[Rfam]
RNA sequence: CCUGAAUCUAAAGAAAACAUUUCUGCACACACACCAGACUAUGGAAGCCAGUGUGUGGAAAUGCUUCUGCUAGAUUCUGA
Numbered sequence: 001c002c003u004g005a006a007u008c009u010a011a012a013g014a015a016a017a018c019a020u021u022u023c024u025g026c027a028c029a030c031a032c033a034c035c036a037g038a039c040u041a042u043g044g045a046a047g048c049c050a051g052u053g054u055g056u057g058g059a060a061a062u063g064c065u066u067c068u069g070c071u072a073g074a075u076u077c078u079g080a
Stems, first nucleotide, its partner, number of pairs: 002079001004077004009072002012068004018063012032051001
A member of the RNA family "mir-147 microRNA precursor family" from Pan troglodytes, 80 nucleotides long. Gene Ontology terms of the family: miRNA-mediated post-transcriptional gene silencing and RISC complex. Taxonomically the source falls in Pan (Eukaryota, Gnathostomata, Amniota, Hominidae). Pairs were carried over by alignment from the consensus structure, which was predicted with RNAalifold. The family has 26 seed sequences and 757 matches in Rfam 15.1.